Annotation
Rfam assigns this 126-nucleotide RNA sequence from Pipistrellus kuhlii to the family "Small nucleolar RNA SNORD22". The base pairs follow the family's consensus structure, which was predicted with PFOLD. Gene Ontology terms of the family: nucleolus and RNA processing. It is annotated as a C/D-box small nucleolar RNA. The literature on the family includes a 1996 paper in Nature by Tycowski et al., "A mammalian gene with introns instead of exons generating stable RNA products". The match comes from Rfam's covariance-model search (145 bits).

RNA sequence: UCCCAGUGAGGAAACAUUCACACGUCUUACCCCCUGUCCCUGUCCCAGAGCCUGUGAAGGUGAACCCACUGGGACAAGCUGGGGGAGAAGAGAAAAGUGUGUUCCAGAAGGAACUGUCUGAGGGAU
Numbered sequence: 001u002c003c004c005a006g007u008g009a010g011g012a013a014a015c016a017u018u019c020a021c022a023c024g025u026c027u028u029a030c031c032c033c034c035u036g037u038c039c040c041u042g043u044c045c046c047a048g049a050g051c052c053u054g055u056g057a058a059g060g061u062g063a064a065c066c067c068a069c070u071g072g073g074a075c076a077a078g079c080u081g082g083g084g085g086a087g088a089a090g091a092g093a094a095a096a097g098u099g100u101g102u103u104c105c106a107g108a109a110g111g112a113a114c115u116g117u118c119u120g121a122g123g124g125a126u
Base pairs, nucleotide, nucleotide: 001125002124003123004122